[Rfam]
RNA sequence: CCCGCCACUAUGCCAUUCUGAUGUGUUUGGUAAUAAUCCAGUGGUGUGCUUAGAUCAGCAUCCAUCUUAGGAAACAGGCUCACUCUACCAGUGAGUGACUCUGUGCCGAAAGUUUGGAGACAGUU
Numbered sequence: 001c002c003c004g005c006c007a008c009u010a011u012g013c014c015a016u017u018c019u020g021a022u023g024u025g026u027u028u029g030g031u032a033a034u035a036a037u038c039c040a041g042u043g044g045u046g047u048g049c050u051u052a053g054a055u056c057a058g059c060a061u062c063c064a065u066c067u068u069a070g071g072a073a074a075c076a077g078g079c080u081c082a083c084u085c086u087a088c089c090a091g092u093g094a095g096u097g098a099c100u101c102u103g104u105g106c107c108g109a110a111a112g113u114u115u116g117g118a119g120a121c122a123g124u125u
Base pairs, nucleotide, nucleotide: 005044006043007042008041009040017032022029023028061118062117063116064115066112067111068110070107071106075103076102077101078100080098083095084094085093
The record is a 125-nucleotide RNA sequence from Aquarana catesbeiana, which matches "Small nucleolar RNA SNORA65" in Rfam. By type it is an H/ACA-box small nucleolar RNA. From the family's description: U65 belongs to the H/ACA class of snoRNAs which are thought to guide the sites of modification of uridines to pseudouridines. Its family is annotated with nucleolus and RNA processing in the Gene Ontology. Rfam 15.1 lists 1,089 matches to the family in 619 species.